This 61-nucleotide RNA sequence from Malus baccata belongs to the Rfam family "Plastid-psbA-4 3UTR RNA".
It is annotated as a cis-regulatory element.
Clan: Plastid-psbA 3UTR RNA clan.
On this family, see Richter et al., Plant Commun 2023: "Retrograde signaling in plants: A critical review focusing on the GUN pathway and beyond".
The family's consensus secondary structure was predicted with LocARNA.
Lineage of the source: Eukaryota > Spermatophyta > Mesangiospermae > Amygdaloideae > Malus.
[Rfam]
RNA sequence: GAAGUAAAGGAGUAAUAAAAAAUUUCUUGUUAUUUCAAGAGAUUUGUUAUUGCUCAUUUAC
Numbered sequence: 001g002a003a004g005u006a007a008a009g010g011a012g013u014a015a016u017a018a019a020a021a022a023u024u025u026c027u028u029g030u031u032a033u034u035u036c037a038a039g040a041g042a043u044u045u046g047u048u049a050u051u052g053c054u055c056a057u058u059u060a061c
Stems, first nucleotide, its partner, number of pairs: 006059003010055008021044002024041006